This 156-nucleotide sequence from Glycine soja belongs to the Rfam family "MIR4371 microRNA precursor family". Clan: MIR4387 microRNA precursor clan. It scores 123 bits against the family's covariance model. The organism belongs to Glycine subgen. Soja, within Eukaryota. Gene Ontology terms of the family: RISC complex and miRNA-mediated post-transcriptional gene silencing.
[Rfam]
RNA sequence: UCGUUGAGUGAUGAGAUGACAGACAGUGUCACAUCAUCACACCCAAUCACUAACACGUCAUCGUCACGUCAUUGAAGGUGAUGAUGUGAUAGUGACAUGUCAAUGAUUGGGUGUGAUGACGUGACACUCUGUCUGUCACGUCAUCACUUAAUAGAA
Numbered sequence: 001u002c003g004u005u006g007a008g009u010g011a012u013g014a015g016a017u018g019a020c021a022g023a024c025a026g027u028g029u030c031a032c033a034u035c036a037u038c039a040c041a042c043c044c045a046a047u048c049a050c051u052a053a054c055a056c057g058u059c060a061u062c063g064u065c066a067c068g069u070c071a072u073u074g075a076a077g078g079u080g081a082u083g084a085u086g087u088g089a090u091a092g093u094g095a096c097a098u099g100u101c102a103a104u105g106a107u108u109g110g111g112u113g114u115g116a117u118g119a120c121g122u123g124a125c126a127c128u129c130u131g132u133c134u135g136u137c138a139c140g141u142c143a144u145c146a147c148u149u150a151a152u153a154g155a156a
Base pairs, nucleotide, nucleotide: 001154003152004151005150006149007148008147009146010145011144012143013142014141017138018137019136020135021134022133023132024131025128026127027126028125029124030123031122032121034119035118036117037116038115039114040113041112042111043110044109046107047106048105049104053100054099055098068085069084070083071082072081